[Rfam]
Small nucleolar RNA snR43: a 203-nucleotide RNA from [Candida] boidinii. NCBI's taxonomy places the organism under Eukaryota, Ascomycota, Saccharomycotina, Pichiaceae, Ogataea. On this family, see Balakin et al., Cell 1996: "The RNA world of the nucleolus: two major families of small RNAs defined by different box elements with related functions". The family's RNA type in Rfam is H/ACA-box small nucleolar RNA. Rfam links the family to the GO terms RNA processing and nucleolus. Pairs were carried over by alignment from the consensus structure, which is taken from published work.
RNA sequence: CUCUCCUGUUUCUGCCUCAUAUUCUUAUUCUUCCAUAGAUUAAUGGGUUCUGUUUAUGGAGAAGAUAAAGCUGUUUGAAGUUGUUUAUGAUUUGAUACUUCGUUUAUAACUUUGGAUGGAUCGUGUGAUGUUGGUUAAUUGCAAAGGAAAUUUUUUUUUCUUCUAUGAAAUUAUUUCUGACUUGAUUGGCUCUCCCUACAUUU
Numbered sequence: 001c002u003c004u005c006c007u008g009u010u011u012c013u014g015c016c017u018c019a020u021a022u023u024c025u026u027a028u029u030c031u032u033c034c035a036u037a038g039a040u041u042a043a044u045g046g047g048u049u050c051u052g053u054u055u056a057u058g059g060a061g062a063a064g065a066u067a068a069a070g071c072u073g074u075u076u077g078a079a080g081u082u083g084u085u086u087a088u089g090a091u092u093u094g095a096u097a098c099u100u101c102g103u104u105u106a107u108a109a110c111u112u113u114g115g116a117u118g119g120a121u122c123g124u125g126u127g128a129u130g131u132u133g134g135u136u137a138a139u140u141g142c143a144a145a146g147g148a149a150a151u152u153u154u155u156u157u158u159u160c161u162u163c164u165a166u167g168a169a170a171u172u173a174u175u176u177c178u179g180a181c182u183u184g185a186u187u188g189g190c191u192c193u194c195c196c197u198a199c200a201u202u203u
Stems, first nucleotide, its partner, number of pairs: 003061004016047004020042002023039003071119014087103001125196001127194002131189005145178005157170004